Nucleotides: 110
Base pairs, nucleotide, nucleotide: 006098008096009095010094011060012059013058014057016054017047018046019045020044021043022042023041066091067090068089069088072085073084074083075082
Number, partner (000 for none) and nucleotide at each position: 001000a002000g003000c004000c005000u006098u007000c008096g009095c010094u011060a012059g013058g014057g015000g016054u017047g018046c019045g020044a021043g022042g023041c024000c025000g026000u027000c028000c029000g030000a031000c032000a033000c034000c035000g036000g037000a038000c039000g040000c041023g042022c043021u044020u045019c046018g047017c048000u049000g050000a051000g052000a053000a054016a055000c056000a057014c058013c059012c060011u061000u062000u063000g064000a065000a066091c067090c068089u069088g070000a071000c072085c073084g074083a075082g076000g077000u078000c079000g080000u081000u082075c083074u084073c085072g086000c087000g088069u089068a090067g091066g092000g093000a094010a095009g096008c097000a098006a099000c100000g101000a102000u103000g104000c105000g106000c107000a108000c109000c110000g

A member of the RNA family "TPP riboswitch aptamer (THI element)" from Aquabacterium sp. NJ1, 110 nucleotides long. Gene Ontology term of the family: thiamine pyrophosphate binding. Vitamin B(1) in its active form thiamin pyrophosphate (TPP) is an essential coenzyme that is synthesised by coupling of pyrimidine and thiazole moieties in bacteria. The organism belongs to Aquabacterium, within Bacteria. On this family, see Sudarsan et al., RNA 2003: "Metabolite-binding RNA domains are present in the genes of eukaryotes".